[Rfam]
RNA sequence: UUGGUACUUUGGUUAAUCGCAAGGGUAAAACUUUGAGGAAAGUCCGAACUUCAUAGGGCAGGAAGGCAGUUAAUGGCUGCUAGAAGUAAUUCUAAGGAAAGUGCCACAGAAAAUAGACCGCAAGAAAUUGUAAGGGUGAAACGGUGAGGUAAGAGCUCACCAGUGUCUUAGGAGACUAAGAUAGCUAGGUAAACCCCUUCUGAAGCAAGAAAAAUUAAAGAUAUAUCGGUUGCCCGCUGAGUCUUUGGGGUAUUCGCUUGAACCUAUACGCAAGUAUAAGUCUAGAAAAAUGAUUAACAAAUACAGAAUUCGGCUUAUAAAGUGCCAAGGAG
Numbered sequence: 001u002u003g004g005u006a007c008u009u010u011g012g013u014u015a016a017u018c019g020c021a022a023g024g025g026u027a028a029a030a031c032u033u034u035g036a037g038g039a040a041a042g043u044c045c046g047a048a049c050u051u052c053a054u055a056g057g058g059c060a061g062g063a064a065g066g067c068a069g070u071u072a073a074u075g076g077c078u079g080c081u082a083g084a085a086g087u088a089a090u091u092c093u094a095a096g097g098a099a100a101g102u103g104c105c106a107c108a109g110a111a112a113a114u115a116g117a118c119c120g121c122a123a124g125a126a127a128u129u130g131u132a133a134g135g136g137u138g139a140a141a142c143g144g145u146g147a148g149g150u151a152a153g154a155g156c157u158c159a160c161c162a163g164u165g166u167c168u169u170a171g172g173a174g175a176c177u178a179a180g181a182u183a184g185c186u187a188g189g190u191a192a193a194c195c196c197c198u199u200c201u202g203a204a205g206c207a208a209g210a211a212a213a214a215u216u217a218a219a220g221a222u223a224u225a226u227c228g229g230u231u232g233c234c235c236g237c238u239g240a241g242u243c244u245u246u247g248g249g250g251u252a253u254u255c256g257c258u259u260g261a262a263c264c265u266a267u268a269c270g271c272a273a274g275u276a277u278a279a280g281u282c283u284a285g286a287a288a289a290a291u292g293a294u295u296a297a298c299a300a301a302u303a304c305a306g307a308a309u310u311c312g313g314c315u316u317a318u319a320a321a322g323u324g325c326c327a328a329g330g331a332g
Stems, first nucleotide, its partner, number of pairs: 001328011012298007020035005040316003044313005049205004056235004061201005066080005081095001082093004096196002101194002103190003118135002120131004143161006163185001164183008209255003216247006226240005262281002265278005
RNA: Bacterial RNase P class A